The record is a 404-nucleotide RNA sequence from Salipiger bermudensis, which matches "Bacterial RNase P class A" in Rfam. It is annotated as a ribozyme. The literature on the family includes a 1998 paper in Annu Rev Biochem by Frank and Pace, "Ribonuclease P: unity and diversity in a tRNA processing ribozyme".
[Rfam]
RNA sequence: GUGGAGGGCUGGGCGGCCGCCGCCUUCGGGGUGACCCGUCGGGGGAGGAAAGUCCGGACUCACCGAAGCGCCGGUGCCGGGUAACGCCCGGGCAGGGCAACCUGACGGACAGCGCCACAGAGAACAGACCGCCGUCCUUCGGGGCGGUAAGGGUGAAACGGUGGAGUAAGAGACCACCGGGGGACGGGCAACCGGACCCGCAUGGCAAGCCCCACCGGGAGCAAUGCCAAAUAGGGACCUCGCGCGGGCAUGAUCCUUCGGGAUAUCACCGCAGGGCUGCUUCGGCCCGAGAGGUCCGGGUUGGCAGCUUGAGCGCGCGGGCAACCGCGGGCCUAGAGGAAUGGUCGCCGAGGGGCGGGGAGACCCGCUCUGAACAGAAUCCGGCUUACAGGCCCUCCACGCAU
Numbered sequence: 001g002u003g004g005a006g007g008g009c010u011g012g013g014c015g016g017c018c019g020c021c022g023c024c025u026u027c028g029g030g031g032u033g034a035c036c037c038g039u040c041g042g043g044g045g046a047g048g049a050a051a052g053u054c055c056g057g058a059c060u061c062a063c064c065g066a067a068g069c070g071c072c073g074g075u076g077c078c079g080g081g082u083a084a085c086g087c088c089c090g091g092g093c094a095g096g097g098c099a100a101c102c103u104g105a106c107g108g109a110c111a112g113c114g115c116c117a118c119a120g121a122g123a124a125c126a127g128a129c130c131g132c133c134g135u136c137c138u139u140c141g142g143g144g145c146g147g148u149a150a151g152g153g154u155g156a157a158a159c160g161g162u163g164g165a166g167u168a169a170g171a172g173a174c175c176a177c178c179g180g181g182g183g184a185c186g187g188g189c190a191a192c193c194g195g196a197c198c199c200g201c202a203u204g205g206c207a208a209g210c211c212c213c214a215c216c217g218g219g220a221g222c223a224a225u226g227c228c229a230a231a232u233a234g235g236g237a238c239c240u241c242g243c244g245c246g247g248g249c250a251u252g253a254u255c256c257u258u259c260g261g262g263a264u265a266u267c268a269c270c271g272c273a274g275g276g277c278u279g280c281u282u283c284g285g286c287c288c289g290a291g292a293g294g295u296c297c298g299g300g301u302u303g304g305c306a307g308c309u310u311g312a313g314c315g316c317g318c319g320g321g322c323a324a325c326c327g328c329g330g331g332c333c334u335a336g337a338g339g340a341a342u343g344g345u346c347g348c349c350g351a352g353g354g355g356c357g358g359g360g361a362g363a364c365c366c367g368c369u370c371u372g373a374a375c376a377g378a379a380u381c382c383g384g385c386u387u388a389c390a391g392g393c394c395c396u397c398c399a400c401g402c403a404u
Stems, first nucleotide, its partner, number of pairs: 001400010011389001012349007020045002023042002027038002050387003054384005059221003063218001068282001070280001072217005077091005092106001093104004107212002112210002114206003129152002131148007160178005179201001180199003185194003225306004235297006274288005313332002316329005